Rfam assigns this 94-nucleotide RNA sequence from Apostasia shenzhenica to the family "Small nucleolar RNA Z159/U59". Rfam 15.1 lists 1,401 matches to the family in 272 species. Clan: SNORD59 clan. Gene Ontology terms of the family: nucleolus and RNA processing. It scores 50 bits against the family's covariance model. The family's consensus secondary structure was predicted with PFOLD. The literature on the family includes a 2003 paper in Nucleic Acids Res by Chen et al., "The high diversity of snoRNAs in plants: identification and comparative study of 120 snoRNA genes from Oryza sativa". NCBI's taxonomy places the organism under Eukaryota, Tracheophyta, Mesangiospermae, Asparagales, Apostasia.
Nucleotides: 094
Base pairs, nucleotide, nucleotide: 003092004091005090006089
Number, partner (000 for none) and nucleotide at each position: 001000a002000u003092c004091u005090c006089u007000g008000a009000c010000g011000a012000u013000c014000a015000u016000a017000g018000a019000a020000c021000u022000c023000u024000a025000c026000u027000u028000u029000c030000g031000u032000u033000u034000u035000u036000c037000g038000g039000a040000g041000c042000u043000u044000g045000g046000c047000a048000a049000g050000c051000c052000c053000u054000g055000c056000u057000u058000u059000g060000u061000g062000g063000a064000g065000a066000a067000a068000u069000u070000u071000u072000u073000g074000g075000g076000g077000g078000a079000c080000c081000u082000g083000a084000a085000c086000u087000g088000a089006g090005g091004a092003g093000a094000a